[Rfam]
RNA sequence: CCCCGAUAAAGGCAAAACCGGCGAAAGCCGGCGACGCAAAGCUAAAGGGCCUAAACCGCCAAAAGCGGCAUGGCAGCCAGCUACCGAA
Numbered sequence: 001c002c003c004c005g006a007u008a009a010a011g012g013c014a015a016a017a018c019c020g021g022c023g024a025a026a027g028c029c030g031g032c033g034a035c036g037c038a039a040a041g042c043u044a045a046a047g048g049g050c051c052u053a054a055a056c057c058g059c060c061a062a063a064a065g066c067g068g069c070a071u072g073g074c075a076g077c078c079a080g081c082u083a084c085c086g087a088a
Base pairs, nucleotide, nucleotide: 012037013036018031019030020029021028022027040082041081042080043079047078048077049074050073051072056068057067058066059065
The record is an 88-nucleotide RNA from Thermovenabulum gondwanense, which matches "c-di-GMP-I riboswitch aptamer" in Rfam. The match comes from Rfam's covariance-model search (82 bits). NCBI's taxonomy places the organism under Bacteria, Bacillati, Bacillota, Thermosediminibacterales, Thermovenabulum. Gene Ontology term of the family: cyclic-di-GMP binding. GEMM was predicted in a large-scale screen for bacterial structured RNA regulatory elements.